The record is a 91-nucleotide RNA sequence from Nocardia arthritidis, which matches "Glycine riboswitch aptamer" in Rfam. Taxonomically the source falls in Nocardia (Bacteria, Actinomycetes, Mycobacteriales, Nocardiaceae). It scores 55 bits against the family's covariance model.

RNA sequence: UCAGCCGCGGCGAGAGAUCUCCACUCCGGUGGAGAGCCGAAGGAGCAACAUCCUCCCGGGAAUCUCUCAGGCCCAGUAUCGCCGCGGACAG
Numbered sequence: 001u002c003a004g005c006c007g008c009g010g011c012g013a014g015a016g017a018u019c020u021c022c023a024c025u026c027c028g029g030u031g032g033a034g035a036g037c038c039g040a041a042g043g044a045g046c047a048a049c050a051u052c053c054u055c056c057c058g059g060g061a062a063u064c065u066c067u068c069a070g071g072c073c074c075a076g077u078a079u080c081g082c083c084g085c086g087g088a089c090a091g
Stems, first nucleotide, its partner, number of pairs: 006086008019034004036072003039068002043066003049059001
Rfam links the family to the GO term glycine biosynthetic process.
The pairing is the family consensus, mapped onto this sequence.